[Rfam]
RNA: TPP riboswitch aptamer (THI element)
Organism: Amycolatopsis sp. CA-230715
RNA sequence: GGUGGUCCGCACGGGAGCCCGAGGCACGGGCUGAGAGGGAGCCGCACCGCUCCGACCGUGGAACCUGAUCCGGGUAAUGCCGGCGCAGGGAGCGUGAUCGGAAGUAUG
Numbered sequence: 001g002g003u004g005g006u007c008c009g010c011a012c013g014g015g016a017g018c019c020c021g022a023g024g025c026a027c028g029g030g031c032u033g034a035g036a037g038g039g040a041g042c043c044g045c046a047c048c049g050c051u052c053c054g055a056c057c058g059u060g061g062a063a064c065c066u067g068a069u070c071c072g073g074g075u076a077a078u079g080c081c082g083g084c085g086c087a088g089g090g091a092g093c094g095u096g097a098u099c100g101g102a103a104g105u106a107u108g
Stems, first nucleotide, its partner, number of pairs: 006096001008094003011059004017031005038053005064089004070083004